[Rfam]
RNA: Lacto-rpoB RNA
RNA sequence: UAUUGAUCCAUUUUUUAUCCGAAAUAUUUUCCGGAUAAAAAAUGGAUCAAUACAAAAA
Numbered sequence: 001u002a003u004u005g006a007u008c009c010a011u012u013u014u015u016u017a018u019c020c021g022a023a024a025u026a027u028u029u030u031c032c033g034g035a036u037a038a039a040a041a042a043u044g045g046a047u048c049a050a051u052a053c054a055a056a057a058a
Base pairs, nucleotide, nucleotide: 008045009044012041013040014039015038016037017036018035019034020033021032